The record is a 96-nucleotide sequence from Halomonas urumqiensis, which matches "t44 RNA" in Rfam.
The family's RNA type in Rfam is small RNA.

[Rfam]
Nucleotides: 096
Base pairs, nucleotide, nucleotide: 023086024085025084026083027082028081029080030079035077036076037075038074039073040071041070042069048067049066050065051064052063
Number, partner (000 for none) and nucleotide at each position: 001000a002000a003000c004000a005000u006000a007000a008000c009000g010000c011000c012000u013000u014000g015000a016000a017000a018000a019000c020000a021000c022000a023086c024085a025084u026083g027082c028081a029080c030079c031000g032000u033000c034000a035077c036076a037075u038074g039073g040071u041070c042069c043000c044000g045000g046000g047000u048067g049066c050065u051064g052063c053000g054000g055000g056000c057000u058000u059000g060000c061000u062000c063052g064051c065050g066049g067048u068000c069042g070041g071040a072000u073039c074038c075037a076036u077035g078000g079030g080029g081028u082027g083026c084025g085024u086023g087000g088000a089000g090000g091000c092000c093000u094000a095000a096000c